[Rfam]
The record is a 168-nucleotide sequence from Thermoactinomyces sp. AS95, which matches "glmS glucosamine-6-phosphate activated ribozyme aptamer" in Rfam. The source organism's lineage runs through Bacteria, Bacillota, Bacilli, Caryophanales and Thermoactinomyces.
RNA sequence: GUUUGCCGUAAAGCGCCUGGACUGCAGAGGAGACGUGGAUCUGCAGUUGACGAGGAGGAGGAGUAUCGAGUGAUCGGCGGAUACCUCCCGGCUUCGCAUCAAAGCCGAGGAAUCGCGACACAAAACAGCGGGGUGACCCGUUGUACAAAAGUUGCGAUAUGAUGCUAA
Numbered sequence: 001g002u003u004u005g006c007c008g009u010a011a012a013g014c015g016c017c018u019g020g021a022c023u024g025c026a027g028a029g030g031a032g033a034c035g036u037g038g039a040u041c042u043g044c045a046g047u048u049g050a051c052g053a054g055g056a057g058g059a060g061g062a063g064u065a066u067c068g069a070g071u072g073a074u075c076g077g078c079g080g081a082u083a084c085c086u087c088c089c090g091g092c093u094u095c096g097c098a099u100c101a102a103a104g105c106c107g108a109g110g111a112a113u114c115g116c117g118a119c120a121c122a123a124a125a126c127a128g129c130g131g132g133g134u135g136a137c138c139c140g141u142u143g144u145a146c147a148a149a150a151g152u153u154g155c156g157a158u159a160u161g162a163u164g165c166u167a168a
Stems, first nucleotide, its partner, number of pairs: 020048008057088005066077004089107006112158007126143007

The family's consensus secondary structure is taken from published work. It scores 114 bits against the family's covariance model. It is annotated as a riboswitch. About the family: This entry contains a glucosamine-6-phosphate activated ribozyme that is found in the mRNA for GlmS. GlmS is an enzyme that uses fructose-6-phosphate and glutamine to generate glucosamine-6-phosphate. The ribozyme catalyses self cleavage of the glmS mRNA that is thought to regulate GlmS activity.